RNA sequence: CUGUAGUGCAUUGUAGUUGCAUUGCAUGUAUCUGUGCUUCUGUGCAAUGCGCCUGCGGUGCAAUACAG
Number, nucleotide and partner (000 for none) at each position: 001c068002u067003g066004u065005a000006g064007u062008g061009c060010a059011u058012u057013g056014u055015a054016g053017u000018u000019g050020c000021a048022u047023u046024g045025c044026a043027u042028g000029u000030a000031u000032c000033u000034g000035u000036g000037c000038u000039u000040c000041u000042g027043u026044g025045c024046a023047a022048u021049g000050c019051g000052c000053c016054u015055g014056c013057g012058g011059u010060g009061c008062a007063a000064u006065a004066c003067a002068g001
Background:
The record is a 68-nucleotide sequence from Lepisosteus oculatus, which matches "mir-33 microRNA precursor family" in Rfam. For this family Rfam cites "Direct sequencing and expression analysis of a large number of miRNAs in Aedes aegypti and a multi-species survey of novel mosquito miRNAs" (Li et al., BMC Genomics, 2009). The match comes from Rfam's covariance-model search (68 bits). The base pairs follow the family's consensus structure, which was predicted with PFOLD.